[Rfam]
RNA sequence: AAUGUUUUUUUCGAUAUAGAACACCUAUGUCGAUAAAAAGAUUUGAGCCCUUU
Number, nucleotide and partner (000 for none) at each position: 001a000002a000003u000004g000005u000006u000007u000008u000009u000010u000011u033012c032013g031014a030015u029016a028017u027018a000019g000020a000021a000022c000023a000024c000025c000026u000027a017028u016029g015030u014031c013032g012033a011034u000035a000036a000037a000038a000039a000040g000041a000042u000043u000044u000045g000046a000047g000048c000049c000050c000051u000052u000053u000

Record summary:
Plastid-atpF group II-D1 intron: a 53-nucleotide sequence from Hibiscus trionum. The family's consensus secondary structure was predicted with LocARNA. Its family is annotated with Group II intron splicing in the Gene Ontology. Rfam's curators write: Plastid atpF is a non-coding RNA (ncRNA) recognised in plastids. Lineage of the source: Eukaryota > Viridiplantae > Streptophyta > Streptophytina > Hibiscus. It scores 64 bits against the family's covariance model.